The record is a 102-nucleotide RNA from Clostridium perfringens, which matches "Purine riboswitch aptamer" in Rfam. It scores 83 bits against the family's covariance model.
[Rfam]
RNA sequence: UAAGUGUAUUAAAUUUUAACUCGUAUAUAAUCGGUAAUAUGGUCCGAAAGUUUCUACCUGCUAACCGUAAAAUAGCAGACUACGAGGAGUUGUACUAUAAAU
Numbered sequence: 001u002a003a004g005u006g007u008a009u010u011a012a013a014u015u016u017u018a019a020c021u022c023g024u025a026u027a028u029a030a031u032c033g034g035u036a037a038u039a040u041g042g043u044c045c046g047a048a049a050g051u052u053u054c055u056a057c058c059u060g061c062u063a064a065c066c067g068u069a070a071a072a073u074a075g076c077a078g079a080c081u082a083c084g085a086g087g088a089g090u091u092g093u094a095c096u097a098u099a100a101a102u
Base pairs, nucleotide, nucleotide: 020086021085022084023083024082025081031047032046033045034044058078059077060076061075062074063073